[Rfam]
RNA sequence: GCCGACGUAGUUCAGAGGUAGAAUUCUUGCUUUGGGUUUUCUAAGUUUGCAAGAGGUCUUGGGUUCAAUUCCCAACGUCGGCC
Numbered sequence: 001g002c003c004g005a006c007g008u009a010g011u012u013c014a015g016a017g018g019u020a021g022a023a024u025u026c027u028u029g030c031u032u033u034g035g036g037u038u039u040u041c042u043a044a045g046u047u048u049g050c051a052a053g054a055g056g057u058c059u060u061g062g063g064u065u066c067a068a069u070u071c072c073c074a075a076c077g078u079c080g081g082c083c
Stems, first nucleotide, its partner, number of pairs: 001082007010024004026053005059075005